Source information
Shown here is a 92-nucleotide RNA sequence from Rhynchospora breviuscula, a member of the family "Small nucleolar RNA U54". The organism belongs to Rhynchospora, within Eukaryota. Rfam describes the family as follows. U54 is a C/D box small nucleolar RNA, which acts as a methylation guide for 18S ribosomal RNA in plants. By type it is a C/D-box small nucleolar RNA. The literature on the family includes a 2003 paper in Nucleic Acids Res by Chen et al., "The high diversity of snoRNAs in plants: identification and comparative study of 120 snoRNA genes from Oryza sativa". The base pairs follow the family's consensus structure, which was predicted with PFOLD.

RNA sequence: AGCUCAGUGAUUACAGCCAAUUUAGUUGGCAAUAUACGCUAUUCUGAGAAAAUCUUUAGUUUCUCUUGCUGACAACUAUAAAUAUGAGAGCU
Numbered sequence: 001a002g003c004u005c006a007g008u009g010a011u012u013a014c015a016g017c018c019a020a021u022u023u024a025g026u027u028g029g030c031a032a033u034a035u036a037c038g039c040u041a042u043u044c045u046g047a048g049a050a051a052a053u054c055u056u057u058a059g060u061u062u063c064u065c066u067u068g069c070u071g072a073c074a075a076c077u078a079u080a081a082a083u084a085u086g087a088g089a090g091c092u
Stems, first nucleotide, its partner, number of pairs: 001092005